Description:
Shown here is a 59-nucleotide sequence from Effusibacillus lacus, a member of the family "Selenocysteine insertion sequence 3".
RNA sequence: AUUUGACACAGCCCGACGGUUGCCGGUCUGGCACCCUCAUUUGGUCGCGGCGCGAUGAC
Numbered sequence: 001a002u003u004u005g006a007c008a009c010a011g012c013c014c015g016a017c018g019g020u021u022g023c024c025g026g027u028c029u030g031g032c033a034c035c036c037u038c039a040u041u042u043g044g045u046c047g048c049g050g051c052g053c054g055a056u057g058a059c
Stems, first nucleotide, its partner, number of pairs: 007049001009047001011045003015042002018035002021033005
On this family, see Huttenhofer et al., RNA 1996: "Solution structure of mRNA hairpins promoting selenocysteine incorporation in Escherichia coli and their base-specific interaction with special elongation factor SELB". The source organism's lineage runs through Bacteria, Bacillati, Bacillota, Alicyclobacillaceae and Effusibacillus.